[Rfam]
RNA: Oocyte entry signal (OES) from oskar mRNA
Organism: Drosophila virilis
Nucleotides: 064
Base pairs, nucleotide, nucleotide: 002063008059010057011056012055013054014051015050016049017048018047020039021038022037023036024035
Number, partner (000 for none) and nucleotide at each position: 001000u002063a003000u004000a005000g006000c007000c008059u009000g010057g011056c012055u013054u014051g015050c016049a017048c018047a019000a020039a021038a022037u023036c024035a025000a026000u027000a028000c029000c030000g031000c032000g033000g034000u035024u036023g037022a038021u039020u040000u041000u042000a043000u044000a045000a046000a047018u048017g049016u050015g051014u052000u053000u054013a055012g056011g057010u058000c059008a060000a061000u062000u063002u064000u